A member of the RNA family "tRNA" from Malassezia restricta, 84 nucleotides long.
It scores 53 bits against the family's covariance model.
Pairs were carried over by alignment from the consensus structure, which is taken from published work.
Rfam links the family to the GO term triplet codon-amino acid adaptor activity.
RNA sequence: GACCCUAUAACUCAGUCGGUUAGAGUGUGGAGCUAAUAUUCCUAUGUUACUCCAAAGUCGCCAGUUCGAGCCUGGUUAGGGUCA
Numbered sequence: 001g002a003c004c005c006u007a008u009a010a011c012u013c014a015g016u017c018g019g020u021u022a023g024a025g026u027g028u029g030g031a032g033c034u035a036a037u038a039u040u041c042c043u044a045u046g047u048u049a050c051u052c053c054a055a056a057g058u059c060g061c062c063a064g065u066u067c068g069a070g071c072c073u074g075g076u077u078a079g080g081g082u083c084a
Base pairs, nucleotide, nucleotide: 001083002082003081004080005079006078007077010026011025012024013023028054029053030052031051032050060076061075062074063073064072